[Rfam]
Nucleotides: 076
Base pairs, nucleotide, nucleotide: 001018002017003016004015005014026076027075028074029073032071033070037051038050039049040048041047053065054064055063
Number, partner (000 for none) and nucleotide at each position: 001018a002017g003016c004015a005014c006000u007000g008000u009000u010000u011000a012000a013000u014005g015004u016003g017002c018001u019000g020000a021000c022000a023000g024000a025000u026076g027075u028074a029073a030000g031000u032071c033070c034000g035000a036000c037051g038050u039049g040048c041047g042000a043000c044000c045000a046000c047041c048040g049039c050038a051037c052000u053065g054064c055063c056000u057000g058000a059000a060000c061000a062000u063055g064054g065053c066000u067000u068000u069000g070033g071032g072000a073029u074028u075027a076026c

A member of the RNA family "S15-Methanomicrobia ribosomal protein leader" from Methanoregula formicica, 76 nucleotides long. The family is grouped with related families in Rfam's "Ribosomal Protein S15 Leader clan". Taxonomically the source falls in Methanoregula formicica (Archaea, Methanobacteriota, Methanomicrobia, Methanoregula).